Shown here is a 54-nucleotide RNA from Salmo trutta, a member of the family "Guanidine-II riboswitch aptamer (mini-ykkC)". The base pairs follow the family's consensus structure, which is taken from published work. On this family, see Weinberg et al., Nucleic Acids Res 2007: "Identification of 22 candidate structured RNAs in bacteria using the CMfinder comparative genomics pipeline". Rfam describes the family as follows. Simpler in structure and has fewer highly conserved nucleotide positions than the ykkC-yxkD leader. Despite this each of its two stem-loop structures directly bind free guanidine. The organism belongs to Salmo, within Eukaryota.
RNA sequence: CGGGGGGGACGACCCCCCCCCAGAUACAGACCACUGCCGGGGGGGACGACCCCC
Numbered sequence: 001c002g003g004g005g006g007g008g009a010c011g012a013c014c015c016c017c018c019c020c021c022a023g024a025u026a027c028a029g030a031c032c033a034c035u036g037c038c039g040g041g042g043g044g045g046a047c048g049a050c051c052c053c054c
Base pairs, nucleotide, nucleotide: 002019003018004017005016006015007014008013041054042053043052044051045050
Dot-bracket structure: .(((((((....))))))).....................(((((....)))))